[Rfam]
RNA sequence: UACUCCAAUUUCUGCCCCACUUCGCUUGUGUUCGUAGGAUGAUGGGUUCUGGUGACGGAGUAGAGAAAGCCCUGCGAAAAGUUUCUAGAUUUGAUACUUCUUGAACCGGACGCAGGGAUCGUGGAAUGUGCUCUUGAAGUGCUCAAUAUUUAAUAGUAUUUGGCGUGGGCGCAUAAACUACAUUU
Numbered sequence: 001u002a003c004u005c006c007a008a009u010u011u012c013u014g015c016c017c018c019a020c021u022u023c024g025c026u027u028g029u030g031u032u033c034g035u036a037g038g039a040u041g042a043u044g045g046g047u048u049c050u051g052g053u054g055a056c057g058g059a060g061u062a063g064a065g066a067a068a069g070c071c072c073u074g075c076g077a078a079a080a081g082u083u084u085c086u087a088g089a090u091u092u093g094a095u096a097c098u099u100c101u102u103g104a105a106c107c108g109g110a111c112g113c114a115g116g117g118a119u120c121g122u123g124g125a126a127u128g129u130g131c132u133c134u135u136g137a138a139g140u141g142c143u144c145a146a147u148a149u150u151u152a153a154u155a156g157u158a159u160u161u162g163g164c165g166u167g168g169g170c171g172c173a174u175a176a177a178c179u180a181c182a183u184u185u
Base pairs, nucleotide, nucleotide: 003060004059005058006057016046017045018044019043020041022039023038070117071116072115073114074113075112076111081107083105084104085103123178127173128172129171130170131169139166140165141164142163145160146159147158148157149156150155

A member of the RNA family "Small nucleolar RNA snR43" from Wickerhamiella sorbophila, 185 nucleotides long. The family's consensus secondary structure is taken from published work. The organism belongs to Wickerhamiella, within Eukaryota. A reference for the family is Balakin et al. (1996), "The RNA world of the nucleolus: two major families of small RNAs defined by different box elements with related functions", Cell. The match comes from Rfam's covariance-model search (77 bits). Clan: SNORA9 clan. Rfam classes the family as an H/ACA-box small nucleolar RNA.